[Rfam]
RNA sequence: GGGGGUUAACUCAGUCUAGGGAACUCGGCAAAAUGGUCCUGUACCUUCGGAAGAAGGGAUGCCUACCAUUGUAGUAACCCUGCAAUGGUAGGUCGCAGUGACCAGGGGGAUCUGACUGUUUAAUAAAAACAUAGGUCCUCGCUAGCCCGUAAGGGUGAGAACGGGGGCUAAAUCCUGGCCACUGGCGGUCGGUUAAACUCGGGCUCAACCGAGCGAAGCCCCGCUGAAGGCCGGGGGUAACUCUGACCCUCUCAAGGUAGCCAAAUGCCUUGCCGGGCAAGUUCCGGCGUGCAUGAAUGGAUCAACGUGAUCCCCACUGUCCCAGACUGGGGCCCCAUGAACGCCCAGAGUGGGUUCACAGUCCCGCAA
Numbered sequence: 001g002g003g004g005g006u007u008a009a010c011u012c013a014g015u016c017u018a019g020g021g022a023a024c025u026c027g028g029c030a031a032a033a034u035g036g037u038c039c040u041g042u043a044c045c046u047u048c049g050g051a052a053g054a055a056g057g058g059a060u061g062c063c064u065a066c067c068a069u070u071g072u073a074g075u076a077a078c079c080c081u082g083c084a085a086u087g088g089u090a091g092g093u094c095g096c097a098g099u100g101a102c103c104a105g106g107g108g109g110a111u112c113u114g115a116c117u118g119u120u121u122a123a124u125a126a127a128a129a130c131a132u133a134g135g136u137c138c139u140c141g142c143u144a145g146c147c148c149g150u151a152a153g154g155g156u157g158a159g160a161a162c163g164g165g166g167g168c169u170a171a172a173u174c175c176u177g178g179c180c181a182c183u184g185g186c187g188g189u190c191g192g193u194u195a196a197a198c199u200c201g202g203g204c205u206c207a208a209c210c211g212a213g214c215g216a217a218g219c220c221c222c223g224c225u226g227a228a229g230g231c232c233g234g235g236g237g238u239a240a241c242u243c244u245g246a247c248c249c250u251c252u253c254a255a256g257g258u259a260g261c262c263a264a265a266u267g268c269c270u271u272g273c274c275g276g277g278c279a280a281g282u283u284c285c286g287g288c289g290u291g292c293a294u295g296a297a298u299g300g301a302u303c304a305a306c307g308u309g310a311u312c313c314c315c316a317c318u319g320u321c322c323c324a325g326a327c328u329g330g331g332g333c334c335c336c337a338u339g340a341a342c343g344c345c346c347a348g349a350g351u352g353g354g355u356u357c358a359c360a361g362u363c364c365c366g367c368a369a
Stems, first nucleotide, its partner, number of pairs: 001336004010331008019322003036060005045050001061093014094098001106315007113307002117131003134169008142159001145156004172302004177232003182229002184225005191220003198213005233251006252256001272288006350367005
Annotation
The record is a 369-nucleotide part of an RNA from Acidianus brierleyi, which matches "Archaeal large subunit ribosomal RNA" in Rfam.